[Rfam]
RNA sequence: AUAAUGAUACUUGCGUCGGCUAUGCGUCACAGCGCAGGACGCCCCGCCACGGGAAUGGAGGGAGGUACAGACCUAUGG
Dot-bracket structure: ...........(((((......................))))(((.(((......))).)))(((......))))...